[Rfam]
RNA sequence: AGGGGCGCUUGGCCAGCCUUGUGGCGUAUUACAGAGAAGUCACAGGGUCGGACCCAAGGUCUGU
Number, nucleotide and partner (000 for none) at each position: 001a064002g000003g062004g061005g060006c059007g000008c000009u057010u000011g000012g054013c000014c000015a000016g048017c047018c046019u045020u044021g043022u042023g041024g040025c039026g032027u031028a000029u000030u000031a027032c026033a000034g000035a000036g000037a000038a000039g025040u024041c023042a022043c021044a020045g019046g018047g017048u016049c000050g000051g000052a000053c000054c012055c000056a000057a009058g000059g006060u005061c004062u003063g000064u001
RNA: MAT2A 3'UTR stem loop B